Annotation:
A member of the RNA family "U11 spliceosomal RNA" from Didymodactylos carnosus, 136 nucleotides long. The match comes from Rfam's covariance-model search (99 bits). Rfam 15.1 lists 2,595 matches to the family in 1,202 species. The family is grouped with related families in Rfam's "U1 clan". The base pairs follow the family's consensus structure, which is taken from published work. The organism belongs to Didymodactylos, within Eukaryota. By type it is a spliceosomal small nuclear RNA. For this family Rfam cites "Additional low-abundance human small nuclear ribonucleoproteins: U11, U12, etc" (Montzka and Steitz, Proc Natl Acad Sci U S A, 1988).

Nucleotides: 136
Base pairs, nucleotide, nucleotide: 008085009084010083011082012081013027014026015025016024028056029055030054031053032052033051035049036048038046039045057080058079059078060077061076062075063074103134104133105132106131108130109129110128111127112126114125115124116123117121
Number, partner (000 for none) and nucleotide at each position: 001000a002000a003000a004000a005000a006000g007000g008085g009084c010083g011082u012081c013027u014026g015025u016024u017000u018000a019000c020000c021000a022000a023000u024016a025015a026014c027013a028056c029055a030054u031053a032052g033051u034000u035049u036048u037000c038046u039045u040000u041000a042000a043000a044000a045039a046038a047000a048036g049035a050000c051033a052032c053031u054030g055029u056028g057080c058079g059078g060077a061076a062075u063074g064000g065000c066000u067000a068000u069000c070000a071000a072000g073000a074063c075062a076061u077060u078059u079058c080057g081012g082011a083010c084009g085008c086000a087000u088000a089000a090000u091000c092000u093000u094000u095000g096000a097000a098000a099000a100000c101000c102000g103134g104133a105132g106131c107000a108130g109129u110128u111127g112126g113000c114125u115124u116123g117121a118000a119000a120000a121117u122000a123116c124115g125114g126112c127111c128110g129109g130108c131106g132105c133104u134103c135000c136000a